Description
Alphaproteobacterial ar14: a 121-nucleotide RNA from Mesorhizobium sp. ORS 3428. The family has 118 seed sequences and 784 matches in Rfam 15.1.

RNA sequence: GAAUUUCGUCAAAGCCGACCUCCUUCCCGGCGAUGACGAAUAGGGUCGAUCUUCUCCUCCUCCCGGAGAUCGACCACCAAAACGACACCCGCCGGACCUCCUCCCCCGGCGGGUGUUGUGU
Dot-bracket structure: .....(((.((..(((............)))..)).)))....((((((((((............)))))))))).........(((((((((((..........))))))))))).....
Smr14C2 was renamed NfeR1 (Nodule Formation Efficiency RNA) highly expressed in salt stress and during the symbiotic interaction on legume roots. Gene Ontology term of the family: biological process involved in symbiotic interaction.